RNA sequence: CGGUCGGCAGUUCCCAAGGCCCGCUGCGCCCUUCGGGGCAUGCUAAACCUGCCU
Numbered sequence: 001c002g003g004u005c006g007g008c009a010g011u012u013c014c015c016a017a018g019g020c021c022c023g024c025u026g027c028g029c030c031c032u033u034c035g036g037g038g039c040a041u042g043c044u045a046a047a048c049c050u051g052c053c054u
Base pairs, nucleotide, nucleotide: 002015003014028039029038030037031036
RNA: COG3860 RNA
Organism: Pseudooceanicola marinus